[Rfam]
RNA sequence: UGCAAAAUAGGAUUUUGUGCGUCAAGUGUUCAGUGGAUGGGGAGUUGCCGCCGAAACGAAAAGCUCGUCUUACGAUGCAGAAUCCGCACCCGUUGCA
Numbered sequence: 001u002g003c004a005a006a007a008u009a010g011g012a013u014u015u016u017g018u019g020c021g022u023c024a025a026g027u028g029u030u031c032a033g034u035g036g037a038u039g040g041g042g043a044g045u046u047g048c049c050g051c052c053g054a055a056a057c058g059a060a061a062a063g064c065u066c067g068u069c070u071u072a073c074g075a076u077g078c079a080g081a082a083u084c085c086g087c088a089c090c091c092g093u094u095g096c097a
Stems, first nucleotide, its partner, number of pairs: 001097005010085010020074003026057002029055003033051004040091003044087001061071003
Notes
Rfam assigns this 97-nucleotide RNA sequence from Blautia sp. An249 to the family "THF (Tetrahydrofolate) riboswitch aptamer". Taxonomically the source falls in Blautia (Bacteria, Bacillota, Clostridia, Lachnospirales). The literature on the family includes a 2010 paper in Chem Biol by Ames et al., "A eubacterial riboswitch class that senses the coenzyme tetrahydrofolate". Rfam's curators write: Tetrahydrofolate (THF) riboswitch was first reported for Ames et al. as an RNA motif in 5' untranslated (5'-UTR)regions of folate transport and biosynthesis genes in Firmicutes genomes. The family's consensus secondary structure is taken from published work.